[Rfam]
RNA sequence: CCCGACCCUGACGGGCCGGGCUACUUCAUGCCGGCCCUUCGGGCCU
Numbered sequence: 001c002c003c004g005a006c007c008c009u010g011a012c013g014g015g016c017c018g019g020g021c022u023a024c025u026u027c028a029u030g031c032c033g034g035c036c037c038u039u040c041g042g043g044c045c046u
Base pairs, nucleotide, nucleotide: 001020002019003018004017006015007014008013033045034044035043036042037041
The record is a 46-nucleotide RNA sequence from a Pirellulaceae bacterium, which matches "Acido-Lenti-1 RNA" in Rfam. A search with the family's covariance model found it, with a score of 53 bits. Rfam classes the family as a small RNA. Pairs were carried over by alignment from the consensus structure, which is taken from published work. Taxonomically the source falls in Pirellulaceae (Bacteria, Planctomycetota, Planctomycetia, Pirellulales).